Guanidine-I riboswitch aptamer: a 102-nucleotide RNA sequence from Anaerosporomusa subterranea. NCBI's taxonomy places the organism under Bacteria, Bacillati, Bacillota, Acetonemataceae, Anaerosporomusa. It scores 66 bits against the family's covariance model.

RNA sequence: UAGGAGCGUGCCUAGGGUUCCGCACAGUUAGCGCUGUGGUCUGGACCGAGCGGCACGGGUGCAGCGCUGCACUACACCGUGGGGAUAAAAGACCCUGGCGGA
Numbered sequence: 001u002a003g004g005a006g007c008g009u010g011c012c013u014a015g016g017g018u019u020c021c022g023c024a025c026a027g028u029u030a031g032c033g034c035u036g037u038g039g040u041c042u043g044g045a046c047c048g049a050g051c052g053g054c055a056c057g058g059g060u061g062c063a064g065c066g067c068u069g070c071a072c073u074a075c076a077c078c079g080u081g082g083g084g085a086u087a088a089a090a091g092a093c094c095c096u097g098g099c100g101g102a
Stems, first nucleotide, its partner, number of pairs: 007057006015047002020044002022041001023038006058073006075097001077100001081095003